[Rfam]
RNA sequence: AGGGGCGUAGUUCAAUUGGUAGAGCACCGGUCUCCAAAACCGGGUGUUGGGAGUUCGAGUCUCUCCGCCCCUG
Dot-bracket structure: (((((((..((((........)))).(((((.......))))).....(((((.......)))))))))))).
Numbered sequence: 001a002g003g004g005g006c007g008u009a010g011u012u013c014a015a016u017u018g019g020u021a022g023a024g025c026a027c028c029g030g031u032c033u034c035c036a037a038a039a040c041c042g043g044g045u046g047u048u049g050g051g052a053g054u055u056c057g058a059g060u061c062u063c064u065c066c067g068c069c070c071c072u073g
Stems, first nucleotide, its partner, number of pairs: 001072007010025004027043005049065005

Record summary:
The record is a 73-nucleotide RNA sequence, which matches "tRNA" in Rfam. The family's consensus secondary structure is taken from published work. By type it is a transfer RNA. It is one of the family's seed sequences.